Shown here is a 98-nucleotide RNA from Brassica carinata, a member of the family "Small nucleolar RNA snoR8a". Lineage of the source: Eukaryota > Viridiplantae > eudicotyledons > Gunneridae > Brassica. The family's RNA type in Rfam is C/D-box small nucleolar RNA. A search with the family's covariance model found it, with a score of 52 bits.
RNA sequence: AAGGGAGCAGUGAUUAUAAUAUACAAGAAUCAAAAAUUCUGAACUGCUCAUUUACUGGGCAUGAUAGACUCAUUAUACACCCAUAGAAUAUGAGCUCU
Numbered sequence: 001a002a003g004g005g006a007g008c009a010g011u012g013a014u015u016a017u018a019a020u021a022u023a024c025a026a027g028a029a030u031c032a033a034a035a036a037u038u039c040u041g042a043a044c045u046g047c048u049c050a051u052u053u054a055c056u057g058g059g060c061a062u063g064a065u066a067g068a069c070u071c072a073u074u075a076u077a078c079a080c081c082c083a084u085a086g087a088a089u090a091u092g093a094g095c096u097c098u
Stems, first nucleotide, its partner, number of pairs: 003098002006096002